[Rfam]
RNA: Group II catalytic intron D1-D4-2
Organism: Proteiniborus sp. DW1
RNA sequence: GAAGGUAGGCCCUUCGAAACCGUCAUACAGGUGAAAGUUUCAAACCACCUUAAGUUGCUAUAGUCAAAAGCUAUGGUAGUGAGCGUUAAGGAAAAGGUAGAACAAGAUUCUACCAGGU
Numbered sequence: 001g002a003a004g005g006u007a008g009g010c011c012c013u014u015c016g017a018a019a020c021c022g023u024c025a026u027a028c029a030g031g032u033g034a035a036a037g038u039u040u041c042a043a044a045c046c047a048c049c050u051u052a053a054g055u056u057g058c059u060a061u062a063g064u065c066a067a068a069a070g071c072u073a074u075g076g077u078a079g080u081g082a083g084c085g086u087u088a089a090g091g092a093a094a095a096g097g098u099a100g101a102a103c104a105a106g107a108u109u110c111u112a113c114c115a116g117g118u
Stems, first nucleotide, its partner, number of pairs: 001015005016041005023034004046117001048091006054080002057077003061073004096114006